[Rfam]
RNA: Xanthine riboswitch aptamer (NMT1 RNA)
RNA sequence: GCGCAGAGUAGAAGCGUUCAGUCCGGCGUCCUGAUUUCGACGGGAGCCGCGGCGGGAAAUUGCUCUUUCA
Numbered sequence: 001g002c003g004c005a006g007a008g009u010a011g012a013a014g015c016g017u018u019c020a021g022u023c024c025g026g027c028g029u030c031c032u033g034a035u036u037u038c039g040a041c042g043g044g045a046g047c048c049g050c051g052g053c054g055g056g057a058a059a060u061u062g063c064u065c066u067u068u069c070a
Base pairs, nucleotide, nucleotide: 005066006065007064008063009062010061015055018057019056021053022052023051024049025048026047027046